[Rfam]
RNA: Small nucleolar RNA SNORA27
RNA sequence: CAUUCUAACUCCUCUAUCCCAUAAAUACUUACUGUGGUCAUUCAAGUGGGGCAAAGGAAAUAUCCUUUUAAAACUCAGGCAAACCAGUGCUUAUCUUGUAUCCUGUCAAAGGAAACAAAU
Numbered sequence: 001c002a003u004u005c006u007a008a009c010u011c012c013u014c015u016a017u018c019c020c021a022u023a024a025a026u027a028c029u030u031a032c033u034g035u036g037g038u039c040a041u042u043c044a045a046g047u048g049g050g051g052c053a054a055a056g057g058a059a060a061u062a063u064c065c066u067u068u069u070a071a072a073a074c075u076c077a078g079g080c081a082a083a084c085c086a087g088u089g090c091u092u093a094u095c096u097u098g099u100a101u102c103c104u105g106u107c108a109a110a111g112g113a114a115a116c117a118a119a120u
Stems, first nucleotide, its partner, number of pairs: 026053001028051003035044003063113006076098001077096003081092002084089001